Annotation: The record is a 96-nucleotide sequence from Gracilimonas mengyeensis, which matches "SAM-I/IV (S-adenosyl methionine) riboswitch aptamer" in Rfam. Clan: SAM clan. NCBI's taxonomy places the organism under Bacteria, Pseudomonadati, Balneolota, Balneolaceae, Gracilimonas. It scores 61 bits against the family's covariance model.

[Rfam]
RNA sequence: CCCAAACAUCAAGAAACUCUCCGGAGUUACCAACCGACCAACUCGGGCACGGUGGUUCAAGCGAUGUGGGAUUCAUCUCCAAAUAAACGAGUUCCC
Number, nucleotide and partner (000 for none) at each position: 001c000002c000003c000004a000005a000006a067007c066008a065009u064010c063011a000012a000013g000014a000015a028016a027017c026018u025019c024020u000021c000022c000023g000024g019025a018026g017027u016028u015029a056030c055031c054032a000033a000034c052035c051036g050037a000038c047039c046040a000041a092042c091043u090044c089045g088046g039047g038048c000049a000050c036051g035052g034053u000054g031055g030056u029057u000058c000059a000060a000061g000062c000063g010064a009065u008066g007067u006068g000069g080070g079071a078072u000073u000074c000075a000076u000077c000078u071079c070080c069081a000082a000083a000084u000085a000086a000087a000088c045089g044090a043091g042092u041093u000094c000095c000096c000